Mu-gpT-DE RNA: a 53-nucleotide RNA.
Nucleotides: 053
Base pairs, nucleotide, nucleotide: 002042003041004040005039007025008024009023010022011021
Number, partner (000 for none) and nucleotide at each position: 001000c002042c003041c004040u005039g006000a007025c008024a009023g010022a011021u012000c013000c014000a015000g016000u017000g018000u019000g020000g021011a022010u023009c024008u025007g026000a027000c028000a029000u030000u031000a032000g033000c034000c035000a036000c037000g038000a039005c040004a041003g042002g043000a044000g045000u046000a047000a048000c049000u050000c051000a052000u053000g